A member of the RNA family "tRNA" from Variovorax sp. PBL-E5, 82 nucleotides long.
[Rfam]
RNA sequence: GCGCUCGUGGUGGAUUCGGUAGACACACCUGACUCAAAAUCAGGCGCCGCAAGGCAGGCGAGUUCGACCCUCGCCGAGCGCA
Numbered sequence: 001g002c003g004c005u006c007g008u009g010g011u012g013g014a015u016u017c018g019g020u021a022g023a024c025a026c027a028c029c030u031g032a033c034u035c036a037a038a039a040u041c042a043g044g045c046g047c048c049g050c051a052a053g054g055c056a057g058g059c060g061a062g063u064u065c066g067a068c069c070c071u072c073g074c075c076g077a078g079c080g081c082a
Base pairs, nucleotide, nucleotide: 001081002080003079004078005077006076007075010026011025012024028044029043030042031041032040058074059073060072061071062070
Notes: The base pairs follow the family's consensus structure, which is taken from published work. Rfam classes the family as a transfer RNA.